[Rfam]
Shown here is a 213-nucleotide RNA, a member of the family "Small nucleolar RNA SNORA73 family".
RNA sequence: UCAACAUGGACAUCCGUUGAGGUUACUUGUGGGUCUGUCCAAGUGGUAUAUGGGAGUAUAGCCCUAAGUGCAGUGAUGUACAGUCCCCUUCCACAGUGUUGAAGAGCAAGCCCUGUCCCUGGUUCUAGAGCUGAUGAGGGCAGACUCCUUUAUAUUCCUAUAACUUCUCAGUCUCUAGACAAUUACUGAGGAGAAACCAUGCAGGGUGCAACU
Numbered sequence: 001u002c003a004a005c006a007u008g009g010a011c012a013u014c015c016g017u018u019g020a021g022g023u024u025a026c027u028u029g030u031g032g033g034u035c036u037g038u039c040c041a042a043g044u045g046g047u048a049u050a051u052g053g054g055a056g057u058a059u060a061g062c063c064c065u066a067a068g069u070g071c072a073g074u075g076a077u078g079u080a081c082a083g084u085c086c087c088c089u090u091c092c093a094c095a096g097u098g099u100u101g102a103a104g105a106g107c108a109a110g111c112c113c114u115g116u117c118c119c120u121g122g123u124u125c126u127a128g129a130g131c132u133g134a135u136g137a138g139g140g141c142a143g144a145c146u147c148c149u150u151u152a153u154a155u156u157c158c159u160a161u162a163a164c165u166u167c168u169c170a171g172u173c174u175c176u177a178g179a180c181a182a183u184u185a186c187u188g189a190g191g192a193g194a195a196a197c198c199a200u201g202c203a204g205g206g207u208g209c210a211a212c213u
Stems, first nucleotide, its partner, number of pairs: 001102007008040005014032003018029004043094004052087004056081001058079003061074002147205003151201003164193006171180003
U17 (SNORA73A and SNORA73B) also known as E1 belongs to the H/ACA class of small nucleolar RNAs (snoRNAs). Vertebrate U17 is intron-encoded and ranges in length from 200-230 nucleotides, longer than most snoRNAs. It is one of the most abundant snoRNAs in human cells and is essential for the cleavage of pre-rRNA within the 5' external transcribed spacer (ETS). Rfam classes the family as an H/ACA-box small nucleolar RNA.